RNA: c-di-AMP riboswitch aptamer (ydaO/yuaA leader)
RNA sequence: GCGAGAACCGCACCGACCACAUGGCAGGGACGGGGGAACCAGGUAAGUGGGCACCAACGGUGUCCUUGGGGUGAAGCCGCGCAGGCAGUACGGCGGCCGGGUCAGCUUCCGAUCCGAAUCCGACAGCUCACCUCGCAGGCGUCGGGAGAACAA
Numbered sequence: 001g002c003g004a005g006a007a008c009c010g011c012a013c014c015g016a017c018c019a020c021a022u023g024g025c026a027g028g029g030a031c032g033g034g035g036g037a038a039c040c041a042g043g044u045a046a047g048u049g050g051g052c053a054c055c056a057a058c059g060g061u062g063u064c065c066u067u068g069g070g071g072u073g074a075a076g077c078c079g080c081g082c083a084g085g086c087a088g089u090a091c092g093g094c095g096g097c098c099g100g101g102u103c104a105g106c107u108u109c110c111g112a113u114c115c116g117a118a119u120c121c122g123a124c125a126g127c128u129c130a131c132c133u134c135g136c137a138g139g140c141g142u143c144g145g146g147a148g149a150a151c152a153a
Base pairs, nucleotide, nucleotide: 011141013139014138018029020027031135032134033133034132035131040068041067042066043065069121070120071119077096078095079094080093099115100114101113102112